[Rfam]
RNA sequence: GGUGUGUGUAUAUGUAUUUGUCCAACUGUUAGACAAAGGCAUGAAAGACGGGUGCAAAAAUAAUUCUUUUUUUUUGUAACCUUGAACUCGUUGUUCAGUUUUGAUACAUACAAGAAAGAAUAUG
Numbered sequence: 001g002g003u004g005u006g007u008g009u010a011u012a013u014g015u016a017u018u019u020g021u022c023c024a025a026c027u028g029u030u031a032g033a034c035a036a037a038g039g040c041a042u043g044a045a046a047g048a049c050g051g052g053u054g055c056a057a058a059a060a061u062a063a064u065u066c067u068u069u070u071u072u073u074u075u076g077u078a079a080c081c082u083u084g085a086a087c088u089c090g091u092u093g094u095u096c097a098g099u100u101u102u103g104a105u106a107c108a109u110a111c112a113a114g115a116a117a118g119a120a121u122a123u124g
Stems, first nucleotide, its partner, number of pairs: 002055004007050003011046001014040002017037005067120004072115005082103001084101005